The record is a 48-nucleotide sequence from Clostridioides difficile, which matches "uup RNA" in Rfam.
Taxonomically the source falls in Clostridioides difficile (Bacteria, Bacillati, Bacillota, Peptostreptococcales).
Rfam's curators put it in the seed alignment.
Pairs were carried over by alignment from the consensus structure, which is taken from published work.
RNA sequence: GAAAACUUAACUCUACACAAAUGUAUACGAUGAAGCGUUGUGUAGAGG
Numbered sequence: 001g002a003a004a005a006c007u008u009a010a011c012u013c014u015a016c017a018c019a020a021a022u023g024u025a026u027a028c029g030a031u032g033a034a035g036c037g038u039u040g041u042g043u044a045g046a047g048g
Stems, first nucleotide, its partner, number of pairs: 011047005017041003